[Rfam]
RNA: S10-Clostridia ribosomal protein leader
RNA sequence: GAUAUGCGUUGAAGCGAAAGGUGGCCGCCAGACGGCGGGGAAUUUUCGUGGAGUAUGUCCGAUUUUAAACCGGGCGACAA
Numbered sequence: 001g002a003u004a005u006g007c008g009u010u011g012a013a014g015c016g017a018a019a020g021g022u023g024g025c026c027g028c029c030a031g032a033c034g035g036c037g038g039g040g041a042a043u044u045u046u047c048g049u050g051g052a053g054u055a056u057g058u059c060c061g062a063u064u065u066u067a068a069a070c071c072g073g074g075c076g077a078c079a080a
Stems, first nucleotide, its partner, number of pairs: 014049003018046004025038005056079004063074003